Shown here is an 81-nucleotide RNA sequence from Sphingopyxis sp. MC1, a member of the family "ZMP/ZTP riboswitch aptamer (pfl RNA motif)". Lineage of the source: Bacteria > Pseudomonadati > Alphaproteobacteria > Sphingopyxidaceae > Sphingopyxis.

[Rfam]
RNA sequence: CAGGCGUCCCGCAACUGGCGCUGAAGAUGGAGUUCCAUCGGGGAGCGGGACCGAUGCGAGCCGCGCGCCUGGGUGAUCCGU
Numbered sequence: 001c002a003g004g005c006g007u008c009c010c011g012c013a014a015c016u017g018g019c020g021c022u023g024a025a026g027a028u029g030g031a032g033u034u035c036c037a038u039c040g041g042g043g044a045g046c047g048g049g050a051c052c053g054a055u056g057c058g059a060g061c062c063g064c065g066c067g068c069c070u071g072g073g074u075g076a077u078c079c080g081u
Base pairs, nucleotide, nucleotide: 006051007050008049009048010047011046012045015042016041017069018068019067020066021065027038028037029036030035060074061073062072
It scores 49 bits against the family's covariance model.